F6 TB sRNA: a 57-nucleotide RNA from Rhodococcus sp. 1168.
NCBI's taxonomy places the organism under Bacteria, Bacillati, Actinomycetes, Mycobacteriales, Rhodococcus.
It scores 58 bits against the family's covariance model.
[Rfam]
RNA sequence: GUAGUGGCUCCGUACUGCUGCCCGACCCCCGACCCGGCAGCGGUGCGGAGCCUCCUA
Numbered sequence: 001g002u003a004g005u006g007g008c009u010c011c012g013u014a015c016u017g018c019u020g021c022c023c024g025a026c027c028c029c030c031g032a033c034c035c036g037g038c039a040g041c042g043g044u045g046c047g048g049a050g051c052c053u054c055c056u057a
Stems, first nucleotide, its partner, number of pairs: 004054001007051016